[Rfam]
RNA: transfer-messenger RNA
RNA sequence: GGGGCCGACCUGGUUUCGACAGGGGUUAUGAAGUAAUCAGGGCAUGCCGAGGACCCGUCACCUCGUUAAUCAAUGGGAAAAACGUAACUGCAAACGACGAAACGUUCGCACUGGCAGCCUAAGGGCCGCCGUCCUCUGCCUGGCUCACUGACGGGCUAGUGUCGCAAGACCGGUAGCAAUACCGCCAGAGGUCAUAUACGUCAGUUAAGCUCUGUCGGCGUCACGACGCCAGAGUCGAAAACCUGGUGAAUCGCCGUAGCGCAGCGUGUUCGUCCGCGUCGCUGCGGUUAAAUCAAAAGACAGAACUACGCAUGUAGAACUGGUUAUGGACUGCUUCUGGACGCGGGUUCGAUUCCCGCCGGCUCCACCA
Numbered sequence: 001g002g003g004g005c006c007g008a009c010c011u012g013g014u015u016u017c018g019a020c021a022g023g024g025g026u027u028a029u030g031a032a033g034u035a036a037u038c039a040g041g042g043c044a045u046g047c048c049g050a051g052g053a054c055c056c057g058u059c060a061c062c063u064c065g066u067u068a069a070u071c072a073a074u075g076g077g078a079a080a081a082a083c084g085u086a087a088c089u090g091c092a093a094a095c096g097a098c099g100a101a102a103c104g105u106u107c108g109c110a111c112u113g114g115c116a117g118c119c120u121a122a123g124g125g126c127c128g129c130c131g132u133c134c135u136c137u138g139c140c141u142g143g144c145u146c147a148c149u150g151a152c153g154g155g156c157u158a159g160u161g162u163c164g165c166a167a168g169a170c171c172g173g174u175a176g177c178a179a180u181a182c183c184g185c186c187a188g189a190g191g192u193c194a195u196a197u198a199c200g201u202c203a204g205u206u207a208a209g210c211u212c213u214g215u216c217g218g219c220g221u222c223a224c225g226a227c228g229c230c231a232g233a234g235u236c237g238a239a240a241a242c243c244u245g246g247u248g249a250a251u252c253g254c255c256g257u258a259g260c261g262c263a264g265c266g267u268g269u270u271c272g273u274c275c276g277c278g279u280c281g282c283u284g285c286g287g288u289u290a291a292a293u294c295a296a297a298a299g300a301c302a303g304a305a306c307u308a309c310g311c312a313u314g315u316a317g318a319a320c321u322g323g324u325u326a327u328g329g330a331c332u333g334c335u336u337c338u339g340g341a342c343g344c345g346g347g348u349u350c351g352a353u354u355c356c357c358g359c360c361g362g363c364u365c366c367a368c369c370a
Base pairs, nucleotide, nucleotide: 001366002365003364004363005362006361007360020339021338022337023336024335025334026333029330033327034326035325037323038322039321040320043314044313045312046311047310048065049064050063051062052061054077055076056075057074058073110132111131113130114129115128117126118125133191134190135189136188137187138186151205152204154202155201210232211231221249222248223247224246253288254287255286256285257284258283259282260281261280264277265276266275268306269305270304271303272301273300274299343359344358345357346356347355